[Rfam]
Nucleotides: 077
Base pairs, nucleotide, nucleotide: 014045015044016043017042018041021077022076023075024074025073026072027071028040029039030038050067051066052065053064054063055062056061
Number, partner (000 for none) and nucleotide at each position: 001000a002000g003000c004000u005000u006000u007000g008000u009000a010000g011000a012000g013000a014045g015044g016043g017042u018041c019000a020000u021077u022076g023075u024074a025073g026072a027071a028040g029039c030038g031000u032000g033000c034000u035000c036000g037000u038030c039029g040028c041018g042017a043016c044015c045014c046000a047000u048000g049000c050067c051066a052065g053064c054063c055062c056061u057000u058000u059000u060000c061056g062055g063054g064053g065052c066051u067050g068000c069000a070000a071027u072026u073025c074024u075023a076022c077021a

This 77-nucleotide RNA from Parnassius apollo belongs to the Rfam family "Mammalian CPEB3 ribozyme".
Rfam links the family to the GO term RNA nuclease activity.